[Rfam]
RNA sequence: GCCUGAGGCCUGAAAGGGCGACGGUGCAAGCCGGAGCGAGAAGUCAGCAGAGGUCGUAGUAGCCGCAAUCUAGGCGAAGGGC
Numbered sequence: 001g002c003c004u005g006a007g008g009c010c011u012g013a014a015a016g017g018g019c020g021a022c023g024g025u026g027c028a029a030g031c032c033g034g035a036g037c038g039a040g041a042a043g044u045c046a047g048c049a050g051a052g053g054u055c056g057u058a059g060u061a062g063c064c065g066c067a068a069u070c071u072a073g074g075c076g077a078a079g080g081g082c
Stems, first nucleotide, its partner, number of pairs: 001027002004023002008019004044051002053082003062075003
Group II catalytic intron D1-D4-1: an 82-nucleotide sequence from Sodalis glossinidius. Pairs were carried over by alignment from the consensus structure. Group II introns are found in rRNA, tRNA and mRNA of organelles in fungi, plants and protists, and also in mRNA in bacteria.